Description: A member of the RNA family "MIR5387 microRNA precursor family" from Sorghum bicolor, 94 nucleotides long. A search with the family's covariance model found it, with a score of 72 bits.
RNA sequence: UCGUCACACGCGCCGGGACUAAAGGGUCCUGCCCAACGGCUACAUGUCAUGGCUGUCGGGGCAAGGACCCUUUAGUCCCGGCUCGUGUUACGGU
Numbered sequence: 001u002c003g004u005c006a007c008a009c010g011c012g013c014c015g016g017g018a019c020u021a022a023a024g025g026g027u028c029c030u031g032c033c034c035a036a037c038g039g040c041u042a043c044a045u046g047u048c049a050u051g052g053c054u055g056u057c058g059g060g061g062c063a064a065g066g067a068c069c070c071u072u073u074a075g076u077c078c079c080g081g082c083u084c085g086u087g088u089u090a091c092g093g094u
Stems, first nucleotide, its partner, number of pairs: 003091002006088005012082016029065002032060003036056002045049001

NCBI's taxonomy places the organism under Eukaryota, Streptophyta, Spermatophyta, Andropogoneae, Sorghum.